[Rfam]
Glycine riboswitch aptamer: an 89-nucleotide sequence from Lichenicola cladoniae. Rfam describes the family as follows. This family represents the bacterial glycine riboswitch. The source organism's lineage runs through Bacteria, Pseudomonadota, Alphaproteobacteria, Acetobacterales and Lichenicola.
RNA sequence: AACCGCUGACGUGGGAGAGACCGGUGAGAGCCGGCGCCGAAGGAGCAACCGCCCCGGAAACUCUCAGGCAAAUGGACCGCUCAGCUAGA
Number, nucleotide and partner (000 for none) at each position: 001a000002a000003c000004c000005g000006c084007u083008g082009a081010c000011g080012u079013g078014g077015g000016a000017g000018a000019g000020a000021c034022c033023g032024g031025u000026g000027a000028g000029a000030g000031c024032c023033g022034g021035c000036g069037c068038c067039g065040a064041a000042g000043g063044a062045g061046c000047a000048a000049c057050c056051g000052c000053c000054c000055c000056g050057g049058a000059a000060a000061c045062u044063c043064u040065c039066a000067g038068g037069c036070a000071a000072a000073u000074g000075g000076a000077c014078c013079g012080c011081u009082c008083a007084g006085c000086u000087a000088g000089a000

The base pairs follow the family's consensus structure.